[Rfam]
RNA: ZMP/ZTP riboswitch aptamer (pfl RNA motif)
Organism: Chitinasiproducens palmae
RNA sequence: GAUCCUCUAUGUGACUGGCGAUACGGGUGCACCCACCCGAGGUGGACGACCACCGGGAAGCGUAGAGUGUCUUUUGCCGUUCGCCUGGGCAGCCGUU
Numbered sequence: 001g002a003u004c005c006u007c008u009a010u011g012u013g014a015c016u017g018g019c020g021a022u023a024c025g026g027g028u029g030c031a032c033c034c035a036c037c038c039g040a041g042g043u044g045g046a047c048g049a050c051c052a053c054c055g056g057g058a059a060g061c062g063u064a065g066a067g068u069g070u071c072u073u074u075u076g077c078c079g080u081u082c083g084c085c086u087g088g089g090c091a092g093c094c095g096u097u
Base pairs, nucleotide, nucleotide: 003069005067006066007065008064009063010062011061012060015057016056017085018084019083020082021081042053043052044051045050074092075091076090077089078088